The record is an 82-nucleotide sequence from Pogona vitticeps, which matches "mir-92 microRNA precursor family" in Rfam. Rfam 15.1 lists 1,347 matches to the family in 653 species. The family's consensus secondary structure was predicted with PFOLD. The match comes from Rfam's covariance-model search (63 bits). Rfam links the family to the GO terms RISC complex and miRNA-mediated post-transcriptional gene silencing.
RNA sequence: ACUUCUCUGUGGGUUGGGAUGAGUGGCAUUACUUGUACGUUCUCUGAACAGUAUUGCACUUGUCCCGGCCUGUGGUGGAGGA
Numbered sequence: 001a002c003u004u005c006u007c008u009g010u011g012g013g014u015u016g017g018g019a020u021g022a023g024u025g026g027c028a029u030u031a032c033u034u035g036u037a038c039g040u041u042c043u044c045u046g047a048a049c050a051g052u053a054u055u056g057c058a059c060u061u062g063u064c065c066c067g068g069c070c071u072g073u074g075g076u077g078g079a080g081g082a
Stems, first nucleotide, its partner, number of pairs: 004078002009073006016066005022060003026057003030053004
This family represents the microRNA precursor mir-92. Human miR-92 has two predicted hairpin precursor sequences: mir-92-1 on chromosome 13 and mir-92-2 on chromosome X. miR-92 has also been cloned from mouse embryonic stem cells. The mature sequence is excised from the 3' arm of the hairpin. The organism belongs to Pogona, within Eukaryota. On this family, see Houbaviy et al., Dev Cell 2003: "Embryonic stem cell-specific MicroRNAs".